[Rfam]
RNA: mir-373 microRNA precursor family
RNA sequence: GGGAUCCCCAAAAUAGAGGCACUAUUCCUUUUGUCUGUACUGGGAAGUGCUUCGAUUUUGGGGAGCCC
Numbered sequence: 001g002g003g004a005u006c007c008c009c010a011a012a013a014u015a016g017a018g019g020c021a022c023u024a025u026u027c028c029u030u031u032u033g034u035c036u037g038u039a040c041u042g043g044g045a046a047g048u049g050c051u052u053c054g055a056u057u058u059u060g061g062g063g064a065g066c067c068c
Stems, first nucleotide, its partner, number of pairs: 002068002005065001007063003010059005016053008025044003